[Rfam]
RNA: Makes More Granules Regulator RNA (mmgR)
Organism: Falsiroseomonas bella
RNA sequence: GCUUGCUGUCUUUCUUGGACGUUUCCUCCCUAAACUCGGCGGUGCCCCAGGGCACCGCCGUUUUUUUUCGUCCGC
Numbered sequence: 001g002c003u004u005g006c007u008g009u010c011u012u013u014c015u016u017g018g019a020c021g022u023u024u025c026c027u028c029c030c031u032a033a034a035c036u037c038g039g040c041g042g043u044g045c046c047c048c049a050g051g052g053c054a055c056c057g058c059c060g061u062u063u064u065u066u067u068u069c070g071u072c073c074g075c
Base pairs, nucleotide, nucleotide: 008020009019010018011017037060038059039058040057041056042055043054044053045052